FMN riboswitch aptamer (RFN element): a 148-nucleotide RNA sequence from Pontibacillus litoralis.
The RFN element is a highly conserved domain that is found frequently in the 5'-untranslated regions of prokaryotic mRNAs that encode for flavin mononucleotide (FMN) biosynthesis and transport proteins. This element is a metabolite-dependent riboswitch that directly binds FMN in the absence of proteins.
[Rfam]
RNA sequence: UGUGUCCUUCGGGGUGUGGGUGAAAGUCCCAACCGGCGGUGAUGUAAGUUCUAGCUUACUAGCCCGCGACCUGCAAAGAGCAUUCUUUGUGGCUGAUUUGGUGAGAAACCAAAGCCGACGGUGAAAGUCCGGAUGGGAGAAGGAUUAG
Numbered sequence: 001u002g003u004g005u006c007c008u009u010c011g012g013g014g015u016g017u018g019g020g021u022g023a024a025a026g027u028c029c030c031a032a033c034c035g036g037c038g039g040u041g042a043u044g045u046a047a048g049u050u051c052u053a054g055c056u057u058a059c060u061a062g063c064c065c066g067c068g069a070c071c072u073g074c075a076a077a078g079a080g081c082a083u084u085c086u087u088u089g090u091g092g093c094u095g096a097u098u099u100g101g102u103g104a105g106a107a108a109c110c111a112a113a114g115c116c117g118a119c120g121g122u123g124a125a126a127g128u129c130c131g132g133a134u135g136g137g138a139g140a141a142g143g144a145u146u147a148g
Base pairs, nucleotide, nucleotide: 004145005144006143007142008141009140010139018030019029020028032128033127034117035116036067037066038065039064062115063114071092072091097113098112099111100110101109119131120130121129